[Rfam]
Shown here is a 227-nucleotide sequence from Miscanthus lutarioriparius, a member of the family "MIR6217 microRNA precursor family". Rfam 15.1 lists 2,266 matches to the family in 13 species. Lineage of the source: Eukaryota > Streptophytina > Petrosaviidae > Andropogoneae > Miscanthus.
RNA sequence: UAUCCAUAAAAUAACUUAUUCUGUAAUCAUUUUGAGUUACGAUAGUUACUAUGCUAAUUUACGAGACUGCAGUAACUCUUUACUAAGUGAUUUACUGUAACAUUAUGGUAAAUAUCACCAUAAGUUGUAGUAACAUGAGUAUCGUAAAUGCAUAUUUAUAUUAUCGUAAAUUGGUAUAGAUAUUAUCAUAAAUCAAGGUGGCCAUAGAAUAAGUUAUUCUAUGACCA
Numbered sequence: 001u002a003u004c005c006a007u008a009a010a011a012u013a014a015c016u017u018a019u020u021c022u023g024u025a026a027u028c029a030u031u032u033u034g035a036g037u038u039a040c041g042a043u044a045g046u047u048a049c050u051a052u053g054c055u056a057a058u059u060u061a062c063g064a065g066a067c068u069g070c071a072g073u074a075a076c077u078c079u080u081u082a083c084u085a086a087g088u089g090a091u092u093u094a095c096u097g098u099a100a101c102a103u104u105a106u107g108g109u110a111a112a113u114a115u116c117a118c119c120a121u122a123a124g125u126u127g128u129a130g131u132a133a134c135a136u137g138a139g140u141a142u143c144g145u146a147a148a149u150g151c152a153u154a155u156u157u158a159u160a161u162u163a164u165c166g167u168a169a170a171u172u173g174g175u176a177u178a179g180a181u182a183u184u185a186u187c188a189u190a191a192a193u194c195a196a197g198g199u200g201g202c203c204a205u206a207g208a209a210u211a212a213g214u215u216a217u218u219c220u221a222u223g224a225c226c227a
Stems, first nucleotide, its partner, number of pairs: 001227001005223004010218015027201007037191003041187006050178013065165002069161001071159001072157001074155001079148005087142003091138002093132009103122001108116001